[Rfam]
Source information: The record is a 66-nucleotide RNA sequence, which matches "DUF3800-VIII RNA" in Rfam. Rfam classes the family as a small RNA. Rfam describes the family as follows. Bacteroidetes, Cyanobacteria, Firmicutes, Planctomycetes (1 example), Proteobacteria, Tenericutes (1 example).
RNA sequence: CAGGCUCUGCUUCAACCGAAGCCUGGCGCUCUGCGUCAGAGAUUCAUGUAGGUUGGGUGGGGCCAC
Numbered sequence: 001c002a003g004g005c006u007c008u009g010c011u012u013c014a015a016c017c018g019a020a021g022c023c024u025g026g027c028g029c030u031c032u033g034c035g036u037c038a039g040a041g042a043u044u045c046a047u048g049u050a051g052g053u054u055g056g057g058u059g060g061g062g063c064c065a066c
Stems, first nucleotide, its partner, number of pairs: 003064008012056006023039007